[Rfam]
RNA: Glycine riboswitch aptamer
RNA sequence: CUCUGGAGAGUCUCAAUAUUCGGGGGCUCUGCACAACCCCUGGUUGUGCGGAGCCGCUUCUAUUGAGCGCCGAAGGAGCAAGCUGUCGGACCGUAUCGUACGGACCGUGGUGAAACUCUCAGGUACAAGGGACAGAG
Numbered sequence: 001c002u003c004u005g006g007a008g009a010g011u012c013u014c015a016a017u018a019u020u021c022g023g024g025g026g027c028u029c030u031g032c033a034c035a036a037c038c039c040c041u042g043g044u045u046g047u048g049c050g051g052a053g054c055c056g057c058u059u060c061u062a063u064u065g066a067g068c069g070c071c072g073a074a075g076g077a078g079c080a081a082g083c084u085g086u087c088g089g090a091c092c093g094u095a096u097c098g099u100a101c102g103g104a105c106c107g108u109g110g111u112g113a114a115a116c117u118c119u120c121a122g123g124u125a126c127a128a129g130g131g132a133c134a135g136a137g
Stems, first nucleotide, its partner, number of pairs: 001137005012067007069124003072120002076118003082111005